[Rfam]
RNA sequence: UAAAUGAAUAUGCCGUUACCGUAGACAGAAGGUGCCUAGGAUUUCCAAGGCUUAAUAUCCUUCCGAGGUGCUGAUGAAGAUAUUGAAUUAAUAUAUCCGAAGCCUUCGCAUGUCUGCGUGGGCUUUUUUCAUUAUAAA
Numbered sequence: 001u002a003a004a005u006g007a008a009u010a011u012g013c014c015g016u017u018a019c020c021g022u023a024g025a026c027a028g029a030a031g032g033u034g035c036c037u038a039g040g041a042u043u044u045c046c047a048a049g050g051c052u053u054a055a056u057a058u059c060c061u062u063c064c065g066a067g068g069u070g071c072u073g074a075u076g077a078a079g080a081u082a083u084u085g086a087a088u089u090a091a092u093a094u095a096u097c098c099g100a101a102g103c104c105u106u107c108g109c110a111u112g113u114c115u116g117c118g119u120g121g122g123c124u125u126u127u128u129u130c131a132u133u134a135u136a137a138a
Base pairs, nucleotide, nucleotide: 028063029062030061031060032059034051035050036049102123103122104121105120107118108117109116110115